Shown here is a 215-nucleotide RNA sequence from Coleofasciculus chthonoplastes, a member of the family "HNH endonuclease-associated RNA and ORF (HEARO) RNA". It is annotated as a non-coding RNA gene. The source organism's lineage runs through Bacteria, Bacillati, Cyanobacteriota, Coleofasciculaceae and Coleofasciculus chthonoplastes. On this family, see Weinberg et al., Nature 2009: "Exceptional structured noncoding RNAs revealed by bacterial metagenome analysis".

RNA sequence: GUCAACAACCCACCACUGACCCUAGGGGUACAGUGGGGGCUUGAAAGAAAGCCCUAGUUGACCAGUCUAAGUACUUUUGUACUCCGUUUUUUGAGUCAAGACACCUACAAAUACGACGCCAGUUUGUUGCUCUGUCAUCUAACGUUAAACAACCAUUUGGGAGGUAGUGCGUUAGGUCUAACAAGCUCAAAAAACAUUGACUAGGCGAACAUUAC
Numbered sequence: 001g002u003c004a005a006c007a008a009c010c011c012a013c014c015a016c017u018g019a020c021c022c023u024a025g026g027g028g029u030a031c032a033g034u035g036g037g038g039g040c041u042u043g044a045a046a047g048a049a050a051g052c053c054c055u056a057g058u059u060g061a062c063c064a065g066u067c068u069a070a071g072u073a074c075u076u077u078u079g080u081a082c083u084c085c086g087u088u089u090u091u092u093g094a095g096u097c098a099a100g101a102c103a104c105c106u107a108c109a110a111a112u113a114c115g116a117c118g119c120c121a122g123u124u125u126g127u128u129g130c131u132c133u134g135u136c137a138u139c140u141a142a143c144g145u146u147a148a149a150c151a152a153c154c155a156u157u158u159g160g161g162a163g164g165u166a167g168u169g170c171g172u173u174a175g176g177u178c179u180a181a182c183a184a185g186c187u188c189a190a191a192a193a194a195c196a197u198u199g200a201c202u203a204g205g206c207g208a209a210c211a212u213u214a215c
Stems, first nucleotide, its partner, number of pairs: 001062006008055001010039002013036002018031001040051003065201003069197001070083005086195011101135002105129001107127006117207004137177009149168002152165002156162001
Dot-bracket structure: ((((((.(.((.((...(............)...)).))(((......)))...).))))))..(((.((((((....)))))..(((((((((((....((..(.((((((....[[[[.)))))).)....)).(((((((((...((.((..(.....).)).))))))))))).......))))))))))).).)))..]]]]........